[Rfam]
RNA sequence: GAAGGAAGUGAGGAAUAAUAGAUUCCCUAUUGUUUUGAUUGCCGGAAUAAUGGAAUCAAUCAUGUAUUAGCUCUAUCUGAUCCUUU
Numbered sequence: 001g002a003a004g005g006a007a008g009u010g011a012g013g014a015a016u017a018a019u020a021g022a023u024u025c026c027c028u029a030u031u032g033u034u035u036u037g038a039u040u041g042c043c044g045g046a047a048u049a050a051u052g053g054a055a056u057c058a059a060u061c062a063u064g065u066a067u068u069a070g071c072u073c074u075a076u077c078u079g080a081u082c083c084u085u086u
Stems, first nucleotide, its partner, number of pairs: 002085004037057001040055001042053002
The record is an 86-nucleotide RNA from Apium graveolens, which matches "Small nucleolar RNA Z102/R77" in Rfam. Taxonomically the source falls in Apium (Eukaryota, Streptophyta, Streptophytina, campanulids). A search with the family's covariance model found it, with a score of 72 bits. The family's RNA type in Rfam is C/D-box small nucleolar RNA. Its Rfam clan is "SNORD44 clan".